[Rfam]
RNA sequence: UAGCUCUGGUUUCUCUUCAGAUCGUAUAAAUCUUUCGCCUUUUACUAAAGAUUUCCGUGGAGAGGAACAGUCACGAGUGACGUGUAAUUUUUUGUGGCUCUGCUUUAGCGGAGC
Numbered sequence: 001u002a003g004c005u006c007u008g009g010u011u012u013c014u015c016u017u018c019a020g021a022u023c024g025u026a027u028a029a030a031u032c033u034u035u036c037g038c039c040u041u042u043u044a045c046u047a048a049a050g051a052u053u054u055c056c057g058u059g060g061a062g063a064g065g066a067a068c069a070g071u072c073a074c075g076a077g078u079g080a081c082g083u084g085u086a087a088u089u090u091u092u093u094g095u096g097g098c099u100c101u102g103c104u105u106u107a108g109c110g111g112a113g114c
Stems, first nucleotide, its partner, number of pairs: 003078004009068011028054008097114006

Rfam assigns this 114-nucleotide RNA from Alaudala cheleensis to the family "U5 spliceosomal RNA". A reference for the family is Zwieb (1997), "The uRNA database", Nucleic Acids Res. U5 RNA is a component of both types of known spliceosome. The precise function of this molecule is unknown, though it is known that the 5' loop is required for splice site selection and p220 binding, and that both the 3' stem-loop and the Sm site are important for Sm protein binding and cap methylation.